[Rfam]
RNA sequence: AAAAAUAAAGGUGAUGGAGUUCACCAUAAUCGCUAAAUGCUAAUGACUCCUAUAAGUAA
Numbered sequence: 001a002a003a004a005a006u007a008a009a010g011g012u013g014a015u016g017g018a019g020u021u022c023a024c025c026a027u028a029a030u031c032g033c034u035a036a037a038u039g040c041u042a043a044u045g046a047c048u049c050c051u052a053u054a055a056g057u058a059a
Stems, first nucleotide, its partner, number of pairs: 010025004016050006032040002

This 59-nucleotide RNA from Clostridium intestinale belongs to the Rfam family "Fluoride riboswitch aptamer (crcB RNA motif)". The organism belongs to Clostridium intestinale, within Bacteria.